[Rfam]
RNA sequence: CAUUGUUCUGAUCAUCAGUGGAGCUACUAUUAGGAAGGAAAGAUCAGCCGAGUCCUUUGGCCCUGAUCACCUCAAUACAGGAGCUACUAAUUGCAGUGACUUUGGCCUAACUCUCUCUGAAACAAUGAAUUAUGCAAGUUAUAUCAUAGCUUUUCAGCUUUGCCUCAUU
Numbered sequence: 001c002a003u004u005g006u007u008c009u010g011a012u013c014a015u016c017a018g019u020g021g022a023g024c025u026a027c028u029a030u031u032a033g034g035a036a037g038g039a040a041a042g043a044u045c046a047g048c049c050g051a052g053u054c055c056u057u058u059g060g061c062c063c064u065g066a067u068c069a070c071c072u073c074a075a076u077a078c079a080g081g082a083g084c085u086a087c088u089a090a091u092u093g094c095a096g097u098g099a100c101u102u103u104g105g106c107c108u109a110a111c112u113c114u115c116u117c118u119g120a121a122a123c124a125a126u127g128a129a130u131u132a133u134g135c136a137a138g139u140u141a142u143a144u145c146a147u148a149g150c151u152u153u154u155c156a157g158c159u160u161u162g163c164c165u166c167a168u169u
Stems, first nucleotide, its partner, number of pairs: 009069006015120004020114003027105003032101002036097001042092003046088002051085003056081004121169002125165001127163001131143004148159004
This 169-nucleotide RNA sequence from Trichechus manatus belongs to the Rfam family "Interferon gamma 5' UTR regulatory element". This family represents a pseudoknot containing stem-loop structure found in the 5' UTR of interferon (IFN) gamma mRNA. This structure is thought to be involved in translational regulation and the pseudoknot has been found to activate PKR which is known to be a translational inhibitor. Mutations in the pseudoknot structure have been found to reduce PKR activation and increase the translation of IFN-gamma. It scores 121 bits against the family's covariance model. Gene Ontology term of the family: positive regulation of translation. By type it is a cis-regulatory element. The literature on the family includes a 2002 paper in Cell by Ben-Asouli et al., "Human interferon-gamma mRNA autoregulates its translation through a pseudoknot that activates the interferon-inducible protein kinase PKR".